Background:
nhaA-I RNA: a 49-nucleotide RNA. The base pairs follow the family's consensus structure, which is taken from published work. From the family's description: Acidobacteria, Alphaproteobacteria, Betaproteobacteria and Gammaproteobacteria, Verrucomicrobia, cand. division NC10.
RNA sequence: GGGUGCAGCGCGCGCUGCAGGUCAUCGGGGAGGGUCGGGCCGCCCUCCU
Dot-bracket structure: ....(((((....))))).........((((.(((......))).))))